RNA sequence: AAGAUAUCUGUACCGUCUUCUCCCCGACGGUUUCAAUCCAUAGCUUCACGUUGUGUAGCGUAGGUGGAAGGUAUCGUGUGGUGUAUAAACACCACAUAGUCUCUUAGGGGAGACCA
Numbered sequence: 001a002a003g004a005u006a007u008c009u010g011u012a013c014c015g016u017c018u019u020c021u022c023c024c025c026g027a028c029g030g031u032u033u034c035a036a037u038c039c040a041u042a043g044c045u046u047c048a049c050g051u052u053g054u055g056u057a058g059c060g061u062a063g064g065u066g067g068a069a070g071g072u073a074u075c076g077u078g079u080g081g082u083g084u085a086u087a088a089a090c091a092c093c094a095c096a097u098a099g100u101c102u103c104u105u106a107g108g109g110g111a112g113a114c115c116a
Base pairs, nucleotide, nucleotide: 003075004074005073006072007071008070009069012031013030014029015028016027017026020112021111022110023109024108025107037068038067039066040065041064043059044058045057047055048054076097077096078095079094080093081092082091083090084089

This 116-nucleotide RNA sequence from Bromovirus BBMV belongs to the Rfam family "Pseudoknot of tRNA-like structure". Rfam links the family to the GO term regulation of viral genome replication. The organism belongs to Bromovirus BBMV, within Viruses.